[Rfam]
RNA sequence: UGUGGUGCAGUGAUUAUAAAAUCAUUCCUCGUCCUGAUGGGAGAUCUGCGUGAUCGACUCCUAUACACCCAUAGAAUCUGAGCACCA
Number, nucleotide and partner (000 for none) at each position: 001u000002g000003u087004g086005g000006u084007g083008c000009a000010g000011u000012g000013a000014u000015u000016a000017u000018a000019a000020a000021a000022u000023c000024a000025u000026u000027c000028c000029u000030c000031g000032u000033c000034c000035u000036g000037a000038u000039g000040g000041g000042a000043g000044a000045u000046c000047u000048g000049c000050g000051u000052g000053a000054u000055c000056g000057a000058c000059u000060c000061c000062u000063a000064u000065a000066c000067a000068c000069c000070c000071a000072u000073a000074g000075a000076a000077u000078c000079u000080g000081a000082g000083c007084a006085c000086c004087a003
Background: Rfam assigns this 87-nucleotide RNA sequence from Oryza sativa to the family "Small nucleolar RNA snoR8a". Rfam's curators put it in the seed alignment. Taxonomically the source falls in Oryza sativa (Eukaryota, Embryophyta, Tracheophyta, Liliopsida). The base pairs follow the family's consensus structure, which was predicted with WAR. Rfam classes the family as a C/D-box small nucleolar RNA.